Shown here is a 111-nucleotide sequence from Nesterenkonia cremea, a member of the family "mraW RNA". Taxonomically the source falls in Nesterenkonia (Bacteria, Bacillati, Actinomycetes, Micrococcales). The family's RNA type in Rfam is cis-regulatory element. The base pairs follow the family's consensus structure, which is taken from published work. A search with the family's covariance model found it, with a score of 54 bits.

RNA sequence: CUGGAGGCCUUGGAUGAGUUCUCCCGCCGCCCGGCACGUUCCCUGACGUCUCUUCCCCGAUGUCAGGUGACUGCGGAGCGGAUGGGGAGCUGGUCCAAGGAUUCACGUCAG
Numbered sequence: 001c002u003g004g005a006g007g008c009c010u011u012g013g014a015u016g017a018g019u020u021c022u023c024c025c026g027c028c029g030c031c032c033g034g035c036a037c038g039u040u041c042c043c044u045g046a047c048g049u050c051u052c053u054u055c056c057c058c059g060a061u062g063u064c065a066g067g068u069g070a071c072u073g074c075g076g077a078g079c080g081g082a083u084g085g086g087g088a089g090c091u092g093g094u095c096c097a098a099g100g101a102u103u104c105a106c107g108u109c110a111g
Stems, first nucleotide, its partner, number of pairs: 010098006018090002021087004027081004031076002034074001037073001038071003042067008